[Rfam]
Record summary:
Small nucleolar RNA SNORA71: a 127-nucleotide RNA sequence from Pangasianodon hypophthalmus. Rfam links the family to the GO terms RNA processing and nucleolus. Pairs were carried over by alignment from the consensus structure, which was predicted with PFOLD. Rfam's curators write: The members of this family belong to the H/ACA class of snoRNAs which bind a number of proteins (including dyskerin, Gar1p and Nop10p) to form snoRNP complexes.
RNA sequence: CCCUGUAUCGAAAGUGACCAUGGUCUCUGGUUGCCAGGUCAUUGAUACUACAGGAAAAGAAACCUGAAAGUCUUUCCCGUGUUUGCAGGAUUGCUUUGUUCCUGUUAAACCCAGUAUCUUUCACACA
Numbered sequence: 001c002c003c004u005g006u007a008u009c010g011a012a013a014g015u016g017a018c019c020a021u022g023g024u025c026u027c028u029g030g031u032u033g034c035c036a037g038g039u040c041a042u043u044g045a046u047a048c049u050a051c052a053g054g055a056a057a058a059g060a061a062a063c064c065u066g067a068a069a070g071u072c073u074u075u076c077c078c079g080u081g082u083u084u085g086c087a088g089g090a091u092u093g094c095u096u097u098g099u100u101c102c103u104g105u106u107a108a109a110c111c112c113a114g115u116a117u118c119u120u121u122c123a124c125a126c127a
Stems, first nucleotide, its partner, number of pairs: 002054006013043007022035003065123006081110005086104005